[Rfam]
RNA sequence: GGGUGAUGAUGAGGUUGAAGAUUGUCAUGCACCACUCUGAUAUUGAUAUGUGCUGAUACCACUUCUUUCAUCCACUUUUCUCUGAGCUC
Numbered sequence: 001g002g003g004u005g006a007u008g009a010u011g012a013g014g015u016u017g018a019a020g021a022u023u024g025u026c027a028u029g030c031a032c033c034a035c036u037c038u039g040a041u042a043u044u045g046a047u048a049u050g051u052g053c054u055g056a057u058a059c060c061a062c063u064u065c066u067u068u069c070a071u072c073c074a075c076u077u078u079u080c081u082c083u084g085a086g087c088u089c
Base pairs, nucleotide, nucleotide: 001089002088003087004086